[Rfam]
Nucleotides: 351
Stems, first nucleotide, its partner, number of pairs: 040055005059203005070196007085182003089179003095111005112164007204219004209231003316332004322349001324347004
Number, partner (000 for none) and nucleotide at each position: 001000g002000g003000g004000c005000u006000u007000c008000u009000c010000a011000a012000c013000a014000u015000c016000g017000u018000u019000c020000c021000g022000c023000c024000g025000c026000c027000c028000u029000a030000u031000a032000u033000g034000g035000a036000g037000g038000g039000u040055g041054c042053c043052g044051g045000g046000u047000u048000c049000g050000c051044c052043c053042g054041g055040c056000u057000a058000u059203g060202g061201u062200g063199a064000u065000a066000a067000a068000u069000g070196a071195u072194g073193u074192c075191g076190u077000g078000g079000a080000a081000u082000a083000g084000a085182u086181g087180c088000a089179g090178c091177g092000g093000a094000c095111c096110c097109g098108g099107g100000g101000g102000c103000g104000g105000u106000a107099c108098c109097c110096g111095g112164c113163g114162g115161c116160u117159c118158c119000a120000c121000c122000a123000g124000a125000a126000a127000c128000c129000c130000c131000a132000g133000g134000c135000c136000u137000u138000u139000c140000a141000g142000g143000u144000c145000c146000g147000g148000g149000g150000c151000u152000c153000c154000u155000g156000a157000c158118g159117g160116g161115g162114c163113c164112g165000a166000a167000c168000u169000a170000g171000g172000a173000u174000c175000g176000a177091c178090g179089u180087g181086u182085a183000u184000u185000c186000a187000a188000a189000g190076a191075c192074g193073a194072u195071a196070u197000u198000u199063u200062u201061g202060c203059c204219c205218g206217g207216c208000c209231u210230g211229a212000a213000u214000g215000c216207g217206c218205c219204g220000c221000a222000a223000a224000a225000c226000c227000g228000u229211u230210c231209a232000a233000a234000a235000c236000c237000u238000a239000c240000a241000a242000g243000u244000g245000c246000c247000a248000a249000c250000g251000a252000c253000a254000a255000c256000g257000a258000g259000g260000c261000g262000c263000u264000c265000g266000c267000g268000a269000u270000u271000g272000c273000u274000g275000c276000a277000u278000a279000a280000c281000u282000g283000a284000g285000u286000c287000c288000u289000c290000a291000c292000g293000g294000a295000c296000g297000a298000a299000g300000u301000u302000a303000u304000a305000a306000g307000g308000c309000u310000u311000a312000a313000g314000c315000g316332c317331g318330g319329u320000u321000c322349g323000g324347u325346c326345c327344g328000c329319a330318c331317c332316g333000g334000g335000c336000a337000a338000c339000a340000g341000a342000a343000g344327c345326g346325g347324a348000a349322u350000c351000c
This 351-nucleotide RNA from Sphingomonas sp. KC8 belongs to the Rfam family "Alphaproteobacteria transfer-messenger RNA". It scores 231 bits against the family's covariance model. The literature on the family includes a 1996 paper in RNA by Williams and Bartel, "Phylogenetic analysis of tmRNA secondary structure". The family's RNA type in Rfam is non-coding RNA gene.